[Rfam]
RNA: Small nucleolar RNA SNORD121A
Organism: Anser cygnoides
RNA sequence: UGCCAGAAAACUAUGUGACAUUUCUAAGCACGUAUCUAACUGCUUUUUGUGGAAACAUGACUGUUUCUGAGUUUUCUGGAG
Numbered sequence: 001u002g003c004c005a006g007a008a009a010a011c012u013a014u015g016u017g018a019c020a021u022u023u024c025u026a027a028g029c030a031c032g033u034a035u036c037u038a039a040c041u042g043c044u045u046u047u048u049g050u051g052g053a054a055a056c057a058u059g060a061c062u063g064u065u066u067c068u069g070a071g072u073u074u075u076c077u078g079g080a081g
Base pairs, nucleotide, nucleotide: 001081003079004078005077006076008074009073010072011071